[Rfam]
RNA sequence: UGCUCAUCCAGAGGGGUGGAGGGACCGGCCCUGCGAAGCCCCGGCAACCCUCCCGGUUCAAGACUCGUUUUUCUGACGAGGUCGGCCGGGACAGGUGCCAAUUCCGGUCUGUGACCAGGGUGGUCGCAGACGAAGAUGAGGG
Numbered sequence: 001u002g003c004u005c006a007u008c009c010a011g012a013g014g015g016g017u018g019g020a021g022g023g024a025c026c027g028g029c030c031c032u033g034c035g036a037a038g039c040c041c042c043g044g045c046a047a048c049c050c051u052c053c054c055g056g057u058u059c060a061a062g063a064c065u066c067g068u069u070u071u072u073c074u075g076a077c078g079a080g081g082u083c084g085g086c087c088g089g090g091a092c093a094g095g096u097g098c099c100a101a102u103u104c105c106g107g108u109c110u111g112u113g114a115c116c117a118g119g120g121u122g123g124u125c126g127c128a129g130a131c132g133a134a135g136a137u138g139a140g141g142g
Base pairs, nucleotide, nucleotide: 001142003140004139005138006137007136008135013042014041015040016039017038021031022030023029025107026106027105028104043099044098045097046096048095049094051091052090053089054088055087056086057085058084103134108130109129110128111127112126113125114124115123116122